[Rfam]
RNA sequence: AAUUCGGGAGCCAUGGGUAGGGAACCUUGGCAAGAAUAGGAUUUUCCUUGUUCAGUUGGCCUUUGUACGGCGGUGCCCGACGCCCGUGCAA
Numbered sequence: 001a002a003u004u005c006g007g008g009a010g011c012c013a014u015g016g017g018u019a020g021g022g023a024a025c026c027u028u029g030g031c032a033a034g035a036a037u038a039g040g041a042u043u044u045u046c047c048u049u050g051u052u053c054a055g056u057u058g059g060c061c062u063u064u065g066u067a068c069g070g071c072g073g074u075g076c077c078c079g080a081c082g083c084c085c086g087u088g089c090a091a
Stems, first nucleotide, its partner, number of pairs: 001043005010031004015026002063091005069084004
Rhodo-rpoB RNA: a 91-nucleotide RNA from Paramylibacter kogurei. The family's consensus secondary structure is taken from published work.